[Rfam]
RNA sequence: UGUCAAAGUUUUCCUCCGUAGUUAACUGCAUCCGGUUUCAUAAUUCGGCAGUUAACUACCGAGUAGCAU
Numbered sequence: 001u002g003u004c005a006a007a008g009u010u011u012u013c014c015u016c017c018g019u020a021g022u023u024a025a026c027u028g029c030a031u032c033c034g035g036u037u038u039c040a041u042a043a044u045u046c047g048g049c050a051g052u053u054a055a056c057u058a059c060c061g062a063g064u065a066g067c068a069u
Base pairs, nucleotide, nucleotide: 012065015062016061018059019058020057021056022055023054024053025052026051027050028049029048
RNA: MIR2629 microRNA precursor family
Organism: Medicago truncatula